[Rfam]
RNA sequence: UUUUAUGAUGAUAAACUUCAAUUUUUUGCUGGCCUAUUGAGAACAGAGCGCUUCCGCAAGAGGCGUUUUUAGGACAUCCCGCACAGCCUUGUGGCUGCGUGUCUCCAUUGCUUCAGGUUUGAAGCAGACACCGUUUUGGCGUCUGUUUCUCACGGCCUGGGUAAUGUGGGUCCUGGGUCCUUUAAUGUGAUGAGUGGUUAGUACUUUUAUGUCAUAGUUACACUGAGA
Numbered sequence: 001u002u003u004u005a006u007g008a009u010g011a012u013a014a015a016c017u018u019c020a021a022u023u024u025u026u027u028g029c030u031g032g033c034c035u036a037u038u039g040a041g042a043a044c045a046g047a048g049c050g051c052u053u054c055c056g057c058a059a060g061a062g063g064c065g066u067u068u069u070u071a072g073g074a075c076a077u078c079c080c081g082c083a084c085a086g087c088c089u090u091g092u093g094g095c096u097g098c099g100u101g102u103c104u105c106c107a108u109u110g111c112u113u114c115a116g117g118u119u120u121g122a123a124g125c126a127g128a129c130a131c132c133g134u135u136u137u138g139g140c141g142u143c144u145g146u147u148u149c150u151c152a153c154g155g156c157c158u159g160g161g162u163a164a165u166g167u168g169g170g171u172c173c174u175g176g177g178u179c180c181u182u183u184a185a186u187g188u189g190a191u192g193a194g195u196g197g198u199u200a201g202u203a204c205u206u207u208u209a210u211g212u213c214a215u216a217g218u219u220a221c222a223c224u225g226a227g228a
Stems, first nucleotide, its partner, number of pairs: 005215005010026002013024003028202007036195003043188003046068006071181005080101003084097005105176003109163004114159006120152001121149009131139002
RNA: Small nucleolar RNA snR63